Nucleotides: 082
Stems, first nucleotide, its partner, number of pairs: 013071010024060002027058002030055002033052002
Number, partner (000 for none) and nucleotide at each position: 001000g002000c003000c004000u005000u006000c007000u008000g009000g010000a011000u012000c013071c014070u015069g016068a017067a018066u019065u020064u021063g022062u023000u024060u025059g026000a027058g028057u029000g030055c031054u032000g033052g034051a035000u036000g037000g038000a039000a040000u041000a042000c043000a044000g045000c046000a047000a048000a049000u050000c051034u052033c053000u054031a055030g056000c057028a058027c059025c060024a061000u062022a063021u064020a065019a066018a067017u068016u069015c070014a071013g072000c073000a074000u075000u076000u077000c078000a079000g080000u081000u082000g
Rfam assigns this 82-nucleotide RNA from Gongylonema pulchrum to the family "mir-83 microRNA precursor family". The organism belongs to Gongylonema, within Eukaryota. A reference for the family is de Wit et al. (2009), "Repertoire and evolution of miRNA genes in four divergent nematode species", Genome Res. The family's consensus secondary structure was predicted with RNAalifold.